[Rfam]
The record is a 95-nucleotide RNA from Mesoplasma syrphidae, which matches "Purine riboswitch aptamer" in Rfam. Taxonomically the source falls in Mesoplasma (Bacteria, Mycoplasmatota, Mollicutes, Entomoplasmataceae). Rfam describes the family as follows. Riboswitches are metabolite binding domains within certain messenger RNAs that serve as precision sensors for their corresponding targets. The match comes from Rfam's covariance-model search (52 bits).
RNA sequence: UGUAAUUUAAUAUAGAAAACUUAUAUAAUUCUGCAUAGUGGGCAGGAGUCUCUACCUUACACCAAUGUAAGAUUAUGAGUUAUUAAAACUAGCAA
Number, nucleotide and partner (000 for none) at each position: 001u000002g000003u000004a000005a000006u000007u000008u000009a000010a000011u000012a000013u000014a000015g000016a000017a000018a081019a080020c079021u078022u077023a076024u075025a074026u000027a000028a000029u047030u046031c045032u044033g043034c042035a000036u000037a000038g000039u000040g000041g000042g034043c033044a032045g031046g030047a029048g000049u000050c000051u000052c000053u000054a000055c000056c071057u070058u069059a068060c067061a066062c000063c000064a000065a000066u061067g060068u059069a058070a057071g056072a000073u000074u025075a024076u023077g022078a021079g020080u019081u018082a000083u000084u000085a000086a000087a000088a000089c000090u000091a000092g000093c000094a000095a000